[Rfam]
RAGATH-18 RNA: a 72-nucleotide RNA sequence.
Rfam describes the family as follows. Actinobacteria, Firmicutes, Fusobacteria, Thermotogae (1 example).
Rfam's curators put it in the seed alignment.
Nucleotides: 072
Stems, first nucleotide, its partner, number of pairs: 001070004009059005022054003030047003034042001
Number, partner (000 for none) and nucleotide at each position: 001070c002069c003068u004067u005000u006000g007000g008000a009059g010058a011057g012056u013055u014000a015000g016000a017000u018000c019000a020000a021000a022054u023053c024052a025000a026000a027000g028000u029000a030047g031046u032045c033000a034042c035000u036000c037000c038000u039000u040000g041000u042034g043000a044000u045032g046031a047030c048000a049000a050000a051000a052024u053023g054022a055013g056012a057011c058010u059009c060000g061000u062000u063000g064000a065000a066000u067004a068003a069002g070001g071000a072000a